[Rfam]
RNA sequence: CGGCUGUAAUGGUCACAAUUCUGAGAGGUGCAUUGAAACCGUAGCUUCUUUCCCUUCUAAUCGCCGGGACGAGGGCCCAGUUCGAAUCCGGUGGUGCCCGACCAACGCGCGCAGGUAACUCGCGAUGAAGGCGGACCUAAGCAAUGAAGUCGACUGUCGAGGGAAGCAAUUCUGCAGACACGACUUCACCAUCGGAUGGCGGUGCUGGAAUACCCCCGUCUCGGUUUGGGAUAGUCGUUAUGGACUGAUGAAUCAACCAGGUAUUUU
Numbered sequence: 001c002g003g004c005u006g007u008a009a010u011g012g013u014c015a016c017a018a019u020u021c022u023g024a025g026a027g028g029u030g031c032a033u034u035g036a037a038a039c040c041g042u043a044g045c046u047u048c049u050u051u052c053c054c055u056u057c058u059a060a061u062c063g064c065c066g067g068g069a070c071g072a073g074g075g076c077c078c079a080g081u082u083c084g085a086a087u088c089c090g091g092u093g094g095u096g097c098c099c100g101a102c103c104a105a106c107g108c109g110c111g112c113a114g115g116u117a118a119c120u121c122g123c124g125a126u127g128a129a130g131g132c133g134g135a136c137c138u139a140a141g142c143a144a145u146g147a148a149g150u151c152g153a154c155u156g157u158c159g160a161g162g163g164a165a166g167c168a169a170u171u172c173u174g175c176a177g178a179c180a181c182g183a184c185u186u187c188a189c190c191a192u193c194g195g196a197u198g199g200c201g202g203u204g205c206u207g208g209a210a211u212a213c214c215c216c217c218g219u220c221u222c223g224g225u226u227u228g229g230g231a232u233a234g235u236c237g238u239u240a241u242g243g244a245c246u247g248a249u250g251a252a253u254c255a256a257c258c259a260g261g262u263a264u265u266u267u
Base pairs, nucleotide, nucleotide: 002014003013004012017265018264019263021261022260027254028253029252031250032249033248036246039243040242041241042240043239044238045237048234049233051231052230053229054228064224065223066222067221068220069219070218071217073215074214075213077208078207079206080205081204082202083201084200086197087196088195089194090193091192092191093190094189096136100132102130108124109123110122111121113120114119137141145188146187147186148185149184150183151182155180156179157178158177163172164171165170